[Rfam]
RNA sequence: GUAAACUUAGUUUACCAAAUAAUGCAGCAAAGUAAAC
Numbered sequence: 001g002u003a004a005a006c007u008u009a010g011u012u013u014a015c016c017a018a019a020u021a022a023u024g025c026a027g028c029a030a031a032g033u034a035a036a037c
Base pairs, nucleotide, nucleotide: 005033006032007031008030010028011027012026
Dot-bracket structure: ....((((.(((.............))).))))....
This 37-nucleotide RNA sequence from Chauna torquata belongs to the Rfam family "CRISPR RNA direct repeat element". Pairs were carried over by alignment from the consensus structure, which was predicted with WAR. NCBI's taxonomy places the organism under Eukaryota, Sarcopterygii, Dinosauria, Neognathae, Chauna.